[Rfam]
The record is a 132-nucleotide RNA from Anabas testudineus, which matches "Small nucleolar RNA SNORA13" in Rfam. The family's RNA type in Rfam is H/ACA-box small nucleolar RNA. The match comes from Rfam's covariance-model search (65 bits). From the family's description: ACA13 is a member of the H/ACA class of snoRNA that guide the sites of modification of uridines to pseudouridines. NCBI's taxonomy places the organism under Eukaryota, Euteleostomi, Euacanthomorphacea, Percomorphaceae, Anabas.
RNA sequence: UGCCUUUAUGUGUUGCCCUUUCAUUGUUACUUUAGUGAUUGGGGUGUCAAAUAAGGCAUACACUGACUCUUGUGGUUGUCUGUGAAAUGAGCCUGACGUGACUCCUUCACACAAACAGCUGCAAGGACAAAA
Numbered sequence: 001u002g003c004c005u006u007u008a009u010g011u012g013u014u015g016c017c018c019u020u021u022c023a024u025u026g027u028u029a030c031u032u033u034a035g036u037g038a039u040u041g042g043g044g045u046g047u048c049a050a051a052u053a054a055g056g057c058a059u060a061c062a063c064u065g066a067c068u069c070u071u072g073u074g075g076u077u078g079u080c081u082g083u084g085a086a087a088u089g090a091g092c093c094u095g096a097c098g099u100g101a102c103u104c105c106u107u108c109a110c111a112c113a114a115a116c117a118g119c120u121g122c123a124a125g126g127a128c129a130a131a132a
Stems, first nucleotide, its partner, number of pairs: 002057005011049002014046004018041001021038005069125004075119005081113004086107002091102001